About this RNA:
This 122-nucleotide sequence from Cricetulus griseus belongs to the Rfam family "Small nucleolar RNA SNORA26". The match comes from Rfam's covariance-model search (111 bits). The family's consensus secondary structure was predicted with RNAalifold.
RNA sequence: GUGCCCUUUUAAGGUUGUCAAGGUACUUUAAGAGGCUAACACAGAAGGGUAAAGGAACUCUCCAAAAAACCCCUGGAGGAGACUGUACACCUCCUUCUUGGAUCCUGUCUGGAGUCACAGAA
Numbered sequence: 001g002u003g004c005c006c007u008u009u010u011a012a013g014g015u016u017g018u019c020a021a022g023g024u025a026c027u028u029u030a031a032g033a034g035g036c037u038a039a040c041a042c043a044g045a046a047g048g049g050u051a052a053a054g055g056a057a058c059u060c061u062c063c064a065a066a067a068a069a070c071c072c073c074u075g076g077a078g079g080a081g082a083c084u085g086u087a088c089a090c091c092u093c094c095u096u097c098u099u100g101g102a103u104c105c106u107g108u109c110u111g112g113a114g115u116c117a118c119a120g121a122a
Base pairs, nucleotide, nucleotide: 002051003050004049005048006047007046008045009044010043014040015039016038017037019035060114061113062112063111064110071101072100075097076096077095079093080092081091084089